[Rfam]
RNA: Small nucleolar RNA snoR2/U65
RNA sequence: GGUUUGAUACCAUGUCGAUGGUAGCUCACUGCAAUGACCAUUGGUGUCAUGAUUAAACCAAAAAUCAAUUCAAUUUUUAUAUGUUGAUAGAAACCUAUGGAUUGAUAUUUUCUUCAUCUACAAAGUCCUUUACUGAUUCCUCAAAU
Numbered sequence: 001g002g003u004u005u006g007a008u009a010c011c012a013u014g015u016c017g018a019u020g021g022u023a024g025c026u027c028a029c030u031g032c033a034a035u036g037a038c039c040a041u042u043g044g045u046g047u048c049a050u051g052a053u054u055a056a057a058c059c060a061a062a063a064a065u066c067a068a069u070u071c072a073a074u075u076u077u078u079a080u081a082u083g084u085u086g087a088u089a090g091a092a093a094c095c096u097a098u099g100g101a102u103u104g105a106u107a108u109u110u111u112c113u114u115c116a117u118c119u120a121c122a123a124a125g126u127c128c129u130u131u132a133c134u135g136a137u138u139c140c141u142c143a144a145a146u
Stems, first nucleotide, its partner, number of pairs: 002058007009050001013046006020039003024032002079138001080135002090127002096122001099119004